[Rfam]
RNA sequence: UGUUAAAAAAAUCAUCAAUUUCUACUGUCAAGAACUGAUGUGGCUGAUAGAAUAACCGGACUACUACACGUAAUGUGUCACAUGUACCUCAUUCUAACAUAUAGGGAGCAGUUUUUAACAGAAGAAAUGAAUGAGAUUUUUAACA
Number, nucleotide and partner (000 for none) at each position: 001u000002g144003u143004u142005a141006a140007a139008a138009a137010a000011a000012u134013c133014a132015u131016c000017a000018a128019u127020u126021u125022c124023u123024a000025c121026u120027g000028u118029c000030a116031a115032g114033a113034a000035c000036u000037g000038a000039u000040g000041u000042g000043g000044c000045u000046g000047a000048u000049a000050g000051a000052a000053u000054a000055a000056c000057c000058g000059g000060a000061c000062u000063a000064c000065u000066a000067c000068a000069c000070g000071u000072a000073a000074u000075g000076u000077g000078u000079c000080a000081c000082a000083u000084g000085u000086a000087c000088c000089u000090c000091a000092u000093u000094c000095u000096a000097a000098c000099a000100u000101a000102u000103a000104g000105g000106g000107a000108g000109c000110a000111g000112u000113u033114u032115u031116u030117a000118a028119c000120a026121g025122a000123a023124g022125a021126a020127a019128u018129g000130a000131a015132u014133g013134a012135g000136a000137u009138u008139u007140u006141u005142a004143a003144c002145a000

Rfam assigns this 145-nucleotide RNA from Gossypium armourianum to the family "MIR7502 microRNA precursor family". Gene Ontology terms of the family: RISC complex and miRNA-mediated post-transcriptional gene silencing. The organism belongs to Gossypium, within Eukaryota. The family has 6 seed sequences and 74,505 matches in Rfam 15.1.